The family of this 46-nucleotide RNA sequence from Nephila pilipes is "Histone 3' UTR stem-loop".
Rfam describes the family as follows. The mRNAs of metazoan histone genes lack a poly-A tail. 3' end processing occurs at a site between a highly conserved stem-loop (modelled by this family) and a purine rich region around 20 nts downstream (the histone downstream element, or HDE).
The source organism's lineage runs through Eukaryota, Arachnida, Orbiculariae, Araneoidea and Nephila.
The family's consensus secondary structure is taken from published work.
For this family Rfam cites "Formation of the 3' end of histone mRNA" (Dominski and Marzluff, Gene, 1999).
By type it is a cis-regulatory element.
Its family is annotated with mRNA 3'-end processing by stem-loop binding and cleavage in the Gene Ontology.

Nucleotides: 046
Stems, first nucleotide, its partner, number of pairs: 006021006
Number, partner (000 for none) and nucleotide at each position: 001000a002000a003000a004000a005000a006021g007020g008019c009018u010017c011016u012000u013000u014000u015000c016011a017010g018009a019008g020007c021006c022000a023000a024000a025000a026000a027000u028000u029000u030000u031000u032000a033000a034000a035000a036000g037000u038000a039000g040000a041000a042000u043000u044000c045000a046000u